Shown here is a 148-nucleotide sequence from Erinaceus europaeus, a member of the family "Small nucleolar RNA SNORA57". By type it is an H/ACA-box small nucleolar RNA. The organism belongs to Erinaceus, within Eukaryota. U99 belongs to the H/ACA class of snoRNAs which are thought to guide the sites of modification of uridines to pseudouridines, the target for this family is unknown.

RNA sequence: CCUCCUUUUCUUGGCGGGUAUCGGGUUGCAGUCCCGUUCCCCGUAAUGUACGGAGGCAGAGGGCAAGGGCUUCGGGCCCCUCGGCGUCAUGUCUUCGGUGCCGGCCGCUUCCAAUCCGCCGGUUCUAUCCUCAAGCACCGAGACACGG
Number, nucleotide and partner (000 for none) at each position: 001c056002c055003u054004c053005c052006u000007u000008u000009u000010c000011u000012u000013g000014g000015c043016g042017g041018g040019u000020a038021u000022c036023g035024g034025g033026u000027u000028g000029c000030a000031g000032u000033c025034c024035c023036g022037u000038u020039c000040c018041c017042c016043g015044u000045a000046a000047u000048g000049u000050a000051c000052g005053g004054a003055g002056g001057c000058a000059g000060a000061g000062g000063g000064c000065a000066a000067g000068g000069g000070c000071u000072u000073c000074g000075g000076g000077c000078c000079c000080c000081u000082c140083g139084g138085c000086g136087u135088c000089a000090u000091g000092u000093c000094u000095u000096c000097g000098g000099u000100g000101c122102c121103g120104g119105c118106c000107g116108c000109u000110u000111c000112c000113a000114a000115u000116c107117c000118g105119c104120c103121g102122g101123u000124u000125c000126u000127a000128u000129c000130c000131u000132c000133a000134a000135g087136c086137a000138c084139c083140g082141a000142g000143a000144c000145a000146c000147g000148g000
The base pairs follow the family's consensus structure, which was predicted with PFOLD. A reference for the family is Vitali et al. (2003), "Identification of 13 novel human modification guide RNAs", Nucleic Acids Res.